A member of the RNA family "U4 spliceosomal RNA" from Hemibagrus wyckioides, 141 nucleotides long. The organism belongs to Hemibagrus, within Eukaryota.
RNA sequence: AUCUUUGCGCAGAGGCAAUAUCGUAGUUUAUGAGGUCAAUCCGAGGCGCGAUCUUUGCUGGUUGAGAACUUUACCCAAUAUCCCGCCUGGAUGACUUGAAAAAUAGUCAUUCGUGGCAAUUUUUUAUGGUCUUUUGCGAGA
Dot-bracket structure: ...................(((((.(((.....((.....))..))))))))................................((((((((((((........))))))))).)))............((((....))))